This 79-nucleotide RNA sequence from Esox lucius belongs to the Rfam family "Small nucleolar RNA SNORD72".
RNA sequence: UUUCUGUCUGUGAUGUUUUUAAUACAAAUGUCUGAACAUAUGAGUUCCUGUGAUUCUCACUGUUUGACUGAGACAAGAC
Numbered sequence: 001u002u003u004c005u006g007u008c009u010g011u012g013a014u015g016u017u018u019u020u021a022a023u024a025c026a027a028a029u030g031u032c033u034g035a036a037c038a039u040a041u042g043a044g045u046u047c048c049u050g051u052g053a054u055u056c057u058c059a060c061u062g063u064u065u066g067a068c069u070g071a072g073a074c075a076a077g078a079c
Base pairs, nucleotide, nucleotide: 002078003077005075006074007073008072
It scores 55 bits against the family's covariance model. The base pairs follow the family's consensus structure. The organism belongs to Esox, within Eukaryota. Rfam links the family to the GO terms nucleolus and RNA processing.